This 308-nucleotide RNA belongs to the Rfam family "7SK RNA". It is one of the family's seed sequences. It is annotated as a non-coding RNA gene. From the family's description: 7SK was discovered as an abundant small nuclear RNA in the mid-70s but a possible function has only recently been suggested.
RNA sequence: GGAUGUGAGGGCGAUCUGGCUGCGACAUCUGUCACCUCAUUGAUCGCCAGGGUUGAUUCAGCUGAUCUAGCUGGCUAGGCAGGUGUCCCCUUCCUCCCUCACCACUCUGUACACGUCCCUCCAGAAGCUGUGUGCUCAGUUGAAGAAGAAGGCUUUCCCAGAAUAGAGAUGGACCUGUCUUAGGUCGAGGGUAUAUGAGUAGCUGCGCUCCCCUGCUAGAACCUCCAAACAAGCUCUCAAGGAAACUGAUUAUUGACAAUUCAAGAAUAGAUUUACUUUAAUAUAAUUUUCUGGGAUGCUCUUUCUUU
Numbered sequence: 001g002g003a004u005g006u007g008a009g010g011g012c013g014a015u016c017u018g019g020c021u022g023c024g025a026c027a028u029c030u031g032u033c034a035c036c037u038c039a040u041u042g043a044u045c046g047c048c049a050g051g052g053u054u055g056a057u058u059c060a061g062c063u064g065a066u067c068u069a070g071c072u073g074g075c076u077a078g079g080c081a082g083g084u085g086u087c088c089c090c091u092u093c094c095u096c097c098c099u100c101a102c103c104a105c106u107c108u109g110u111a112c113a114c115g116u117c118c119c120u121c122c123a124g125a126a127g128c129u130g131u132g133u134g135c136u137c138a139g140u141u142g143a144a145g146a147a148g149a150a151g152g153c154u155u156u157c158c159c160a161g162a163a164u165a166g167a168g169a170u171g172g173a174c175c176u177g178u179c180u181u182a183g184g185u186c187g188a189g190g191g192u193a194u195a196u197g198a199g200u201a202g203c204u205g206c207g208c209u210c211c212c213c214u215g216c217u218a219g220a221a222c223c224u225c226c227a228a229a230c231a232a233g234c235u236c237u238c239a240a241g242g243a244a245a246c247u248g249a250u251u252a253u254u255g256a257c258a259a260u261u262c263a264a265g266a267a268u269a270g271a272u273u274u275a276c277u278u279u280a281a282u283a284u285a286a287u288u289u290u291c292u293g294g295g296a297u298g299c300u301c302u303u304u305c306u307u308u
Stems, first nucleotide, its partner, number of pairs: 001108003005102007013093002018090002024087010035074002037070001039068001042067004046062002116172002119168003122139001124137002127135002140161003148157002202261001204259001208255001224249002281308001283306001285303002287298001289296002